[Rfam]
Nucleotides: 108
Base pairs, nucleotide, nucleotide: 006080007079008078009077010076015032017030018029019028020027021026033057034056035055038053039052040051041049042048043047082092083091084090085089
Number, partner (000 for none) and nucleotide at each position: 001000a002000c003000g004000c005000u006080g007079c008078a009077u010076c011000a012000a013000g014000a015032g016000u017030c018029g019028g020027g021026c022000a023000c024000c025000c026021g027020c028019c029018c030017g031000a032015c033057g034056c035055c036000a037000a038053c039052c040051u041049g042048c043047u044000c045000c046000g047043g048042g049041c050000a051040a052039g053038g054000u055035g056034g057033c058000g059000c060000c061000u062000u063000c064000c065000a066000g067000u068000c069000g070000c071000g072000a073000a074000g075000g076010g077009a078008u079007g080006u081000g082092g083091c084090c085089g086000u087000c088000a089085u090084g091083g092082c093000a094000a095000a096000c097000c098000c099000g100000g101000c102000g103000u104000u105000c106000g107000g108000g
The family of this 108-nucleotide RNA from Sphingomonas hengshuiensis is "SAM-I/IV (S-adenosyl methionine) riboswitch aptamer". It scores 45 bits against the family's covariance model. Clan: SAM clan.